[Rfam]
Overview:
This 122-nucleotide RNA sequence from Cajanus cajan belongs to the Rfam family "mir-172 microRNA precursor family". A search with the family's covariance model found it, with a score of 76 bits. The family has 11 seed sequences and 2,076 matches in Rfam 15.1. The organism belongs to Cajanus, within Eukaryota.
RNA sequence: UUGUUUGCAGGUGCAUCACCAUCAAGAUUCGCAUGCAAUUUACACUCCUGUAGGAGAUCUUUGACAAAGUUCCAGGGAGUGUUUUGAUUUGAGAAUCUUGAUGAUGCUGCAUCAGCAAUAAA
Number, nucleotide and partner (000 for none) at each position: 001u000002u000003g000004u000005u000006u000007g000008c000009a000010g113011g112012u111013g110014c109015a108016u000017c106018a105019c000020c103021a102022u101023c100024a099025a098026g097027a096028u095029u094030c093031g000032c091033a090034u000035g000036c000037a000038a000039u000040u000041u000042a000043c000044a000045c000046u000047c000048c000049u000050g000051u000052a000053g000054g000055a000056g000057a000058u000059c000060u000061u000062u000063g000064a000065c000066a000067a000068a000069g000070u000071u000072c000073c000074a000075g000076g000077g000078a000079g000080u000081g000082u000083u000084u000085u000086g000087a000088u000089u000090u033091g032092a000093g030094a029095a028096u027097c026098u025099u024100g023101a022102u021103g020104a000105u018106g017107c000108u015109g014110c013111a012112u011113c010114a000115g000116c000117a000118a000119u000120a000121a000122a000